[Rfam]
RNA sequence: CAAACGGCCCUUUUCAGGGCCACCAACAUUUUCAAAAGAGUCUAUU
Numbered sequence: 001c002a003a004a005c006g007g008c009c010c011u012u013u014u015c016a017g018g019g020c021c022a023c024c025a026a027c028a029u030u031u032u033c034a035a036a037a038g039a040g041u042c043u044a045u046u
Base pairs, nucleotide, nucleotide: 006021007020008019009018010017011016

Shown here is a 46-nucleotide RNA from Mytilus coruscus, a member of the family "Histone 3' UTR stem-loop". The organism belongs to Mytilus, within Eukaryota. For this family Rfam cites "The sequence of the stem and flanking sequences at the 3' end of histone mRNA are critical determinants for the binding of the stem-loop binding protein" (Williams and Marzluff, Nucleic Acids Res, 1995). The mRNAs of metazoan histone genes lack a poly-A tail. 3' end processing occurs at a site between a highly conserved stem-loop (modelled by this family) and a purine rich region around 20 nts downstream (the histone downstream element, or HDE). The stem-loop is bound by a 31 kDa stem-loop binding protein (SLBP - also termed the histone hairpin binding protein, or HBP). Together with U7 snRNA binding of the HDE, SLBP binding nucleate s the formation of the processing complex. The histone 3' UTR stem-loop is also involved in nucleocytoplasmic transport of the mRNA, and in stability regulation and translation efficiency in the cytoplasm. By type it is a cis-regulatory element.